[Rfam]
RNA: Small nucleolar RNA SNORA49
RNA sequence: CUUCCCCUCCCUUAGUCCAGUCACUCUGUCCCCAGUGGAGUUGUCUGGCAUUGACAGGGAUACAGCACCAUGGCUCCCUUACCUCUCUCAUCUAGAACCUCUUACAUGGGGCUUGUGAGAGAGCUGAACAU
Numbered sequence: 001c002u003u004c005c006c007c008u009c010c011c012u013u014a015g016u017c018c019a020g021u022c023a024c025u026c027u028g029u030c031c032c033c034a035g036u037g038g039a040g041u042u043g044u045c046u047g048g049c050a051u052u053g054a055c056a057g058g059g060a061u062a063c064a065g066c067a068c069c070a071u072g073g074c075u076c077c078c079u080u081a082c083c084u085c086u087c088u089c090a091u092c093u094a095g096a097a098c099c100u101c102u103u104a105c106a107u108g109g110g111g112c113u114u115g116u117g118a119g120a121g122a123g124c125u126g127a128a129c130a131u
Stems, first nucleotide, its partner, number of pairs: 003060003007057002011053001017048004022043001023041005072125003076121001085111003089108003